[Rfam]
Background:
The family of this 105-nucleotide RNA sequence from Vitis vinifera is "MIR396 microRNA precursor family". Gene Ontology terms of the family: RISC complex and miRNA-mediated post-transcriptional gene silencing. Lineage of the source: Eukaryota > Spermatophyta > Magnoliopsida > eudicotyledons > Vitis. It is one of the family's seed sequences.
RNA sequence: UGCCAUGCUUUUCCACAGCUUUCUUGAACUUCUUCUCCCUGUUUGGUGGUCUCCUACGUUUACCCAUCCACUGAAGUUCAAGAAAGCUGUGGGAAACCAUGGCUU
Numbered sequence: 001u002g003c004c005a006u007g008c009u010u011u012u013c014c015a016c017a018g019c020u021u022u023c024u025u026g027a028a029c030u031u032c033u034u035c036u037c038c039c040u041g042u043u044u045g046g047u048g049g050u051c052u053c054c055u056a057c058g059u060u061u062a063c064c065c066a067u068c069c070a071c072u073g074a075a076g077u078u079c080a081a082g083a084a085a086g087c088u089g090u091g092g093g094a095a096a097c098c099a100u101g102g103c104u105u
Stems, first nucleotide, its partner, number of pairs: 003102005013092003017088006024081004029076004